[Rfam]
RNA sequence: AGGCAGCCUCUUUGCAGAAGAUGUGAUAGCAAAGAAGGUGUUUAACUGCUCGUAUAUUAAUUGUCUUUUGCUCUUCAGACUUGCUGAGGCUUUCCGUUGAAGCUGGUCUAGUAAGCCUAAGCACAGU
Numbered sequence: 001a002g003g004c005a006g007c008c009u010c011u012u013u014g015c016a017g018a019a020g021a022u023g024u025g026a027u028a029g030c031a032a033a034g035a036a037g038g039u040g041u042u043u044a045a046c047u048g049c050u051c052g053u054a055u056a057u058u059a060a061u062u063g064u065c066u067u068u069u070g071c072u073c074u075u076c077a078g079a080c081u082u083g084c085u086g087a088g089g090c091u092u093u094c095c096g097u098u099g100a101a102g103c104u105g106g107u108c109u110a111g112u113a114a115g116c117c118u119a120a121g122c123a124c125a126g127u
Stems, first nucleotide, its partner, number of pairs: 002042004007038002009035007017027001065121003070116003077109005083103003088095002
Rfam assigns this 127-nucleotide RNA sequence from Manihot esculenta to the family "Small nucleolar RNA snoR77". A search with the family's covariance model found it, with a score of 126 bits. Pairs were carried over by alignment from the consensus structure, which was predicted with WAR. The family has 5 seed sequences and 649 matches in Rfam 15.1. Taxonomically the source falls in Manihot (Eukaryota, Spermatophyta, Magnoliopsida, Pentapetalae).